[Rfam]
RNA sequence: CCAGAAAAGUUAAUGUGUUAGCUUUUAAGAGCAGACUCAAAGUGUUCUGCUAGUGGUCUUAGCUCGCUACGGUGAGAGCUAAGUAACCGCGAGACCAUCAAAUUGCGGGAAAGUCCUUAGAGCCUUUGCUACCGCCUACGCAUGGAAACAUAGCGUUAGUGCACCAGGGUAAUGACCUCGGGUAUGGUAAAAACGCAAAGGAUUGGAUAAUCUGCAGCCAAGUCCUAAGGCUAUAACUUAGCUAUGGAUGCAGUUCAACGACUAGAUGGUGGUCGGUUCUGACGUCGUUACAUUGUAGUUUAAACGCGUUCAGGGCUUAAGAUAUAGUCUGACCCCUCAGAGAUGAGGCU
Number, nucleotide and partner (000 for none) at each position: 001c000002c000003a000004g000005a026006a025007a024008a023009g022010u021011u020012a019013a018014u000015g000016u000017g000018u013019u012020a011021g010022c009023u008024u007025u006026u005027a000028a000029g000030a000031g000032c000033a000034g000035a000036c000037u000038c000039a000040a000041a000042g000043u000044g000045u000046u000047c000048u000049g000050c000051u000052a000053g000054u000055g000056g000057u000058c000059u000060u000061a000062g000063c000064u000065c000066g000067c000068u000069a000070c000071g000072g000073u000074g000075a000076g000077a000078g000079c000080u000081a000082a000083g000084u000085a000086a000087c000088c000089g000090c000091g000092a000093g274094a273095c272096c271097a270098u000099c268100a267101a000102a000103u000104u216105g215106c214107g213108g212109g211110a000111a000112a000113g000114u207115c206116c205117u000118u000119a000120g000121a000122g000123c000124c000125u000126u000127u000128g000129c000130u000131a000132c000133c000134g000135c000136c000137u000138a000139c000140g000141c000142a000143u000144g000145g000146a000147a000148a000149c000150a000151u000152a000153g000154c000155g000156u000157u000158a000159g000160u000161g000162c000163a000164c000165c000166a000167g000168g000169g000170u000171a000172a000173u000174g000175a000176c000177c000178u000179c000180g000181g000182g000183u000184a000185u000186g000187g000188u000189a000190a000191a000192a000193a000194c000195g000196c000197a000198a000199a000200g000201g000202a000203u000204u000205g116206g115207a114208u000209a000210a000211u109212c108213u107214g106215c105216a104217g254218c253219c000220a000221a000222g249223u248224c247225c246226u000227a000228a000229g000230g242231c241232u240233a239234u000235a000236a000237c000238u000239u233240a232241g231242c230243u000244a000245u000246g225247g224248a223249u222250g000251c000252a000253g218254u217255u000256c000257a000258a330259c000260g329261a328262c327263u326264a325265g000266a000267u100268g099269g000270u097271g096272g095273u094274c093275g000276g316277u315278u314279c313280u312281g311282a310283c000284g000285u000286c000287g000288u000289u000290a000291c000292a000293u000294u000295g000296u000297a000298g000299u000300u000301u000302a000303a000304a000305c000306g000307c000308g000309u000310u282311c281312a280313g279314g278315g277316c276317u000318u000319a000320a000321g000322a000323u000324a000325u264326a263327g262328u261329c260330u258331g000332a000333c000334c000335c348336c347337u346338c345339a344340g000341a000342g000343a000344u339345g338346a337347g336348g335349c000350u000

A member of the RNA family "Group I catalytic intron" from Desarmillaria tabescens, 350 nucleotides long. Rfam describes the family as follows. Group I catalytic introns are large self-splicing ribozymes. NCBI's taxonomy places the organism under Eukaryota, Opisthokonta, Dikarya, Marasmiineae, Desarmillaria. Gene Ontology term of the family: Group I intron splicing. Pairs were carried over by alignment from the consensus structure, which is taken from published work. The match comes from Rfam's covariance-model search (112 bits).